[Rfam]
TPP riboswitch aptamer (THI element): a 156-nucleotide RNA from Stappia sediminis. It scores 68 bits against the family's covariance model.

Nucleotides: 156
Base pairs, nucleotide, nucleotide: 006144007143008142009141010140011105012104013103014102016099017080018079019078020077021076022075023074024073025072026071087098088097089096090095111136112135113134117130118129119128120127
Number, partner (000 for none) and nucleotide at each position: 001000c002000g003000g004000u005000a006144u007143u008142c009141c010140g011105a012104g013103g014102g015000g016099u017080g018079u019078u020077c021076c022075c023074g024073c025072c026071g027000g028000a029000u030000u031000g032000u033000c034000g035000c036000u037000u038000g039000c040000g041000c042000c043000c044000c045000u046000a047000c048000c049000g050000g051000g052000c053000a054000a055000g056000g057000c058000g059000g060000c061000g062000g063000u064000c065000g066000c067000u068000u069000c070000g071026u072025g073024g074023c075022g076021g077020g078019g079018g080017c081000u082000g083000a084000g085000a086000u087098g088097g089096c090095a091000g092000a093000c094000u095090u096089g097088c098087c099016g100000g101000a102014c103013c104012c105011u106000u107000a108000g109000a110000a111136c112135c113134u114000g115000a116000u117130c118129c119128g120127g121000g122000u123000c124000a125000u126000g127120c128119c129118g130117g131000c132000g133000a134113a135112g136111g137000g138000a139000c140010u141009g142008g143007a144006a145000c146000c147000c148000g149000a150000g151000c152000c153000u154000c155000u156000u
NCBI's taxonomy places the organism under Bacteria, Pseudomonadati, Alphaproteobacteria, Hyphomicrobiales, Stappia.